[Rfam]
RNA sequence: UAAUAACAAGCUGAAACGGAGUGCUGUGCGCACGGGCUGUGGCGAGAG
Numbered sequence: 001u002a003a004u005a006a007c008a009a010g011c012u013g014a015a016a017c018g019g020a021g022u023g024c025u026g027u028g029c030g031c032a033c034g035g036g037c038u039g040u041g042g043c044g045a046g047a048g
Stems, first nucleotide, its partner, number of pairs: 009038004021033004
The record is a 48-nucleotide RNA, which matches "ssnA RNA" in Rfam. The base pairs follow the family's consensus structure, which is taken from published work. By type it is a cis-regulatory element.